This 92-nucleotide RNA from Gillisella ampelina belongs to the Rfam family "Rhizobiales sRNA Atu_Ti1". Lineage of the source: Bacteria > Pseudomonadati > Hyphomicrobiales > Gillisella > Gillisella ampelina. A reference for the family is Wilms et al. (2012), "Deep sequencing uncovers numerous small RNAs on all four replicons of the plant pathogen Agrobacterium tumefaciens", RNA Biol. A search with the family's covariance model found it, with a score of 60 bits.
RNA sequence: GUCCACGAUGUAGCGGACCAGGCGUAAAAUCCUCCCAGGACAAGCGCUGCGGUCGGCCAAUACUUCGUGGUCAUGAUGACCAGGCCGACCGC
Numbered sequence: 001g002u003c004c005a006c007g008a009u010g011u012a013g014c015g016g017a018c019c020a021g022g023c024g025u026a027a028a029a030u031c032c033u034c035c036c037a038g039g040a041c042a043a044g045c046g047c048u049g050c051g052g053u054c055g056g057c058c059a060a061u062a063c064u065u066c067g068u069g070g071u072c073a074u075g076a077u078g079a080c081c082a083g084g085c086c087g088a089c090c091g092c
Stems, first nucleotide, its partner, number of pairs: 001018004022047004031039002049092010